Rfam assigns this 125-nucleotide RNA sequence from Bucco capensis to the family "Small nucleolar RNA ACA64". Pairs were carried over by alignment from the consensus structure, which was predicted with WAR. Its family is annotated with nucleolus and RNA processing in the Gene Ontology. A search with the family's covariance model found it, with a score of 55 bits. It is annotated as an H/ACA-box small nucleolar RNA. Rfam 15.1 lists 9,537 matches to the family in 620 species.

RNA sequence: GAAUACUGUGCAUGUCUUGGGGUCUCCUUUGGCCCCUGGUGAGAUAACUGUGCCAACAGCAGAGGGAGCAUUAAACUCAUUGCCCACGGUAAAGUGUGGGGAGUAAUACCCAUGUUCCUAUAAUC
Numbered sequence: 001g002a003a004u005a006c007u008g009u010g011c012a013u014g015u016c017u018u019g020g021g022g023u024c025u026c027c028u029u030u031g032g033c034c035c036c037u038g039g040u041g042a043g044a045u046a047a048c049u050g051u052g053c054c055a056a057c058a059g060c061a062g063a064g065g066g067a068g069c070a071u072u073a074a075a076c077u078c079a080u081u082g083c084c085c086a087c088g089g090u091a092a093a094g095u096g097u098g099g100g101g102a103g104u105a106a107u108a109c110c111c112a113u114g115u116u117c118c119u120a121u122a123a124u125c
Base pairs, nucleotide, nucleotide: 005051006050008048009047010045013042016039021034022033023032024031065118067116068115069114070113071112077106079104080103081102085098086097087096